The record is an 85-nucleotide RNA from Lactococcus cremoris, which matches "ctRNA" in Rfam. Rfam links the family to the GO terms plasmid copy number maintenance and mRNA binding. Rolling circle replication plasmids contain a number of mechanisms to maintain a low copy number. One of these methods is to transcribe a small RNA called ctRNA (for counter-transcribed RNA) than is transcribed on the opposite strand to RepB the replication initiation protein. ctRNA binds to the mRNA of repB and causes translational inhibition.

RNA sequence: UAGUAAUACUCCUUUGUGAGUGUUUUUAAAUAGGCAUAGAGAAAAAUCUUUAGCGGGUCAAUUUCUCUAUGUUUUUAUUAUAUCA
Dot-bracket structure: ....(((((((......)))))..)).....(((((((((((((.................)))))))))))))...........